[Rfam]
RNA sequence: CCUCCAGUUCUUGGCACACAGAUGGCUGUCCGUGCCUGUGUGUGUAAUGUUCGGAGGAAGAGCAAGUGGCAGUGUAAUGUCUUCGGUACCAGUGAGCCUAACUCUCCUGGUCCUAUCCUCAAGCACUGGCACAAGG
Numbered sequence: 001c002c003u004c005c006a007g008u009u010c011u012u013g014g015c016a017c018a019c020a021g022a023u024g025g026c027u028g029u030c031c032g033u034g035c036c037u038g039u040g041u042g043u044g045u046a047a048u049g050u051u052c053g054g055a056g057g058a059a060g061a062g063c064a065a066g067u068g069g070c071a072g073u074g075u076a077a078u079g080u081c082u083u084c085g086g087u088a089c090c091a092g093u094g095a096g097c098c099u100a101a102c103u104c105u106c107c108u109g110g111u112c113c114u115a116u117c118c119u120c121a122a123g124c125a126c127u128g129g130c131a132c133a134a135g136g
Base pairs, nucleotide, nucleotide: 001057002056003055004054005053015044016043017042018041019040020039022037024036025035026034070128071127072126073125074124075123089110090109091108092107094106095105096104
The record is a 136-nucleotide RNA from Atractosteus spatula, which matches "Small nucleolar RNA SNORA57" in Rfam. About the family: U99 belongs to the H/ACA class of snoRNAs which are thought to guide the sites of modification of uridines to pseudouridines, the target for this family is unknown. The match comes from Rfam's covariance-model search (99 bits).